[Rfam]
RNA: Small nucleolar RNA R12
RNA sequence: UUCUGUGUGAUGAAGAAAAUCGUUCGGAUUCCCACUGAUUCUUAAUGAUUAUCACAACCAGCUACUUCUGACAGAU
Number, nucleotide and partner (000 for none) at each position: 001u000002u075003c074004u073005g072006u000007g000008u000009g000010a000011u000012g000013a000014a000015g000016a000017a000018a000019a000020u000021c000022g000023u000024u000025c000026g000027g000028a000029u000030u000031c000032c000033c000034a000035c000036u000037g000038a000039u000040u000041c000042u000043u000044a000045a000046u000047g000048a000049u000050u000051a000052u000053c000054a000055c000056a000057a000058c000059c000060a000061g000062c000063u000064a000065c000066u000067u000068c000069u000070g000071a000072c005073a004074g003075a002076u000